[Rfam]
Nucleotides: 131
Base pairs, nucleotide, nucleotide: 007044008043009042011040012039013038014037015036016035017034048083049082050081051080052079053078054077055076056075057074094126095125096124097123098122099121100120101119102118103117104116
Number, partner (000 for none) and nucleotide at each position: 001000g002000g003000a004000a005000u006000u007044c008043g009042a010000a011040g012039g013038g014037c015036a016035u017034u018000c019000u020000c021000c022000u023000c024000c025000u026000c027000c028000u029000c030000c031000c032000a033000a034017a035016a036015u037014g038013c039012c040011c041000u042009u043008c044007g045000a046000u047000a048083g049082g050081u051080c052079g053078g054077u055076g056075a057074u058000a059000c060000u061000c062000c063000u064000c065000c066000u067000c068000c069000u070000c071000c072000c073000a074057g075056u076055c077054a078053c079052c080051g081050g082049c083048c084000a085000c086000a087000u088000c089000a090000a091000a092000u093000g094126g095125c096124g097123c098122u099121c100120a101119c102118c103117g104116g105000a106000u107000c108000c109000u110000c111000c112000u113000c114000c115000c116104c117103c118102g119101g120100u121099g122098a123097g124096c125095g126094c127000u128000a129000u130000u131000u